RNA sequence: AAAUUAAAUAGGCAAAGUUAGGGAAAUCUAAUGACGCAAAGCUAUAGGGGCUAAGGUAUGCUUAUGUAUAUUAUGCCAGCCAGUUGCCAAA
Numbered sequence: 001a002a003a004u005u006a007a008a009u010a011g012g013c014a015a016a017g018u019u020a021g022g023g024a025a026a027u028c029u030a031a032u033g034a035c036g037c038a039a040a041g042c043u044a045u046a047g048g049g050g051c052u053a054a055g056g057u058a059u060g061c062u063u064a065u066g067u068a069u070a071u072u073a074u075g076c077c078a079g080c081c082a083g084u085u086g087c088c089a090a091a
Stems, first nucleotide, its partner, number of pairs: 012037002017032006040085004047081002049077003056071006